[Rfam]
RNA: Small nucleolar RNA SNORA40
RNA sequence: AGCACGUGUGUUUGUUUAAUUAGUGAGCAAAAGCUGUUAGACGUGCAAAAAAAUUCCUCUUUUGCAACCGAGCUCCUUACUCACUGUGAGUUUUGAUAGACAUAAGAAGGAACGGG
Numbered sequence: 001a002g003c004a005c006g007u008g009u010g011u012u013u014g015u016u017u018a019a020u021u022a023g024u025g026a027g028c029a030a031a032a033g034c035u036g037u038u039a040g041a042c043g044u045g046c047a048a049a050a051a052a053a054u055u056c057c058u059c060u061u062u063u064g065c066a067a068c069c070g071a072g073c074u075c076c077u078u079a080c081u082c083a084c085u086g087u088g089a090g091u092u093u094u095g096a097u098a099g100a101c102a103u104a105a106g107a108a109g110g111a112a113c114g115g116g
Stems, first nucleotide, its partner, number of pairs: 002046006008034002011031005020025001055112001057110002060107005070093006077086001
Dot-bracket structure: .((((((((.(((((....(....).))))).))......))))))........(.((.(((((.....((((((.(........).)))))).........))))).)).)....